The record is a 333-nucleotide RNA from Rhinolophus ferrumequinum, which matches "7SK RNA" in Rfam. Pairs were carried over by alignment from the consensus structure, which is taken from published work. By type it is a non-coding RNA gene. The family is grouped with related families in Rfam's "7SK clan".

RNA sequence: GGAUGUGAGGGUGAUCUGGUUGCGACAACUGUCACCCCAUUGAUCGCCAGGGUUCAUUUGGCUGGUCUGGCUGGCUAGGCGGGCGUCUCCUUCCUCUCUCACCGAUCCAUGUGCGUCCCUCCCGAAGCUUUGAGCUUGGUCAAAGAGCACGACCUUCCCCGAUAGAGGAGAGGACCGUCUUCUCGGUCAAGGGUAUACGAGUAGCUGCGCUCCCCUGCUAGAACCUCCAAACAAGCUCUCAAGGUCCAUUUGUAGGAGAACUAGGGUAGUCAAGCUUCCAACACUCCAGACACAUCCAAACGAGGCGCUGCACGUGGCAGUCUGCCUUUCUUA
Numbered sequence: 001g002g003a004u005g006u007g008a009g010g011g012u013g014a015u016c017u018g019g020u021u022g023c024g025a026c027a028a029c030u031g032u033c034a035c036c037c038c039a040u041u042g043a044u045c046g047c048c049a050g051g052g053u054u055c056a057u058u059u060g061g062c063u064g065g066u067c068u069g070g071c072u073g074g075c076u077a078g079g080c081g082g083g084c085g086u087c088u089c090c091u092u093c094c095u096c097u098c099u100c101a102c103c104g105a106u107c108c109a110u111g112u113g114c115g116u117c118c119c120u121c122c123c124g125a126a127g128c129u130u131u132g133a134g135c136u137u138g139g140u141c142a143a144a145g146a147g148c149a150c151g152a153c154c155u156u157c158c159c160c161g162a163u164a165g166a167g168g169a170g171a172g173g174a175c176c177g178u179c180u181u182c183u184c185g186g187u188c189a190a191g192g193g194u195a196u197a198c199g200a201g202u203a204g205c206u207g208c209g210c211u212c213c214c215c216u217g218c219u220a221g222a223a224c225c226u227c228c229a230a231a232c233a234a235g236c237u238c239u240c241a242a243g244g245u246c247c248a249u250u251u252g253u254a255g256g257a258g259a260a261c262u263a264g265g266g267u268a269g270u271c272a273a274g275c276u277u278c279c280a281a282c283a284c285u286c287c288a289g290a291c292a293c294a295u296c297c298a299a300a301c302g303a304g305g306c307g308c309u310g311c312a313c314g315u316g317g318c319a320g321u322c323u324g325c326c327u328u329u330c331u332u333a
Base pairs, nucleotide, nucleotide: 001108002107003106005102006101007100008099009098010097011096013093014092018090019089024087025086026085029082030081031080032079033078035074036073037070038069039068042067043066044065045064046062047061048060116171117170118168119167120166121165122139123138124137125136127135128134140162141161147158149156204275205274206273210269211268213266214265215264216263217262225258226257227256228255231253232252233251234250235249299332300331302328303327304326305325306324307321308320309319310318311317